[Rfam]
RNA sequence: CAACAAAAAACAAACAAGACUUAUAACUCUUUUCCCCAAGCAGGCUCAGUGUGCAAUGGCUGCAAACAGCAGCUUCCUUGGUAGUGUAGGCAGCCUGCUACCUGUACAGGUUGCCCUAAGGGACCUUGAAAGACAACU
Numbered sequence: 001c002a003a004c005a006a007a008a009a010a011c012a013a014a015c016a017a018g019a020c021u022u023a024u025a026a027c028u029c030u031u032u033u034c035c036c037c038a039a040g041c042a043g044g045c046u047c048a049g050u051g052u053g054c055a056a057u058g059g060c061u062g063c064a065a066a067c068a069g070c071a072g073c074u075u076c077c078u079u080g081g082u083a084g085u086g087u088a089g090g091c092a093g094c095c096u097g098c099u100a101c102c103u104g105u106a107c108a109g110g111u112u113g114c115c116c117u118a119a120g121g122g123a124c125c126u127u128g129a130a131a132g133a134c135a136a137c138u
Stems, first nucleotide, its partner, number of pairs: 001053002019050003027044002080125003091113006
RNA: Small nucleolar RNA SNORA70
Organism: Ovis aries